A member of the RNA family "L31-Coriobacteria ribosomal protein leader" from Coriobacteriales bacterium OH1046, 33 nucleotides long.

[Rfam]
Nucleotides: 033
Stems, first nucleotide, its partner, number of pairs: 001021008
Number, partner (000 for none) and nucleotide at each position: 001021g002020u003019c004018c005017u006016g007015g008014u009000c010000g011000g012000a013000a014008a015007c016006c017005a018004g019003g020002g021001c022000a023000u024000a025000g026000a027000g028000a029000a030000g031000g032000a033000g

Clan: Ribosomal Protein L31 Leader clan. For this family Rfam cites "Discovery of 20 novel ribosomal leader candidates in bacteria and archaea" (Eckert and Weinberg, BMC Microbiol, 2020). A search with the family's covariance model found it, with a score of 45 bits. The organism belongs to Coriobacteriales, within Bacteria. The family's consensus secondary structure is taken from published work.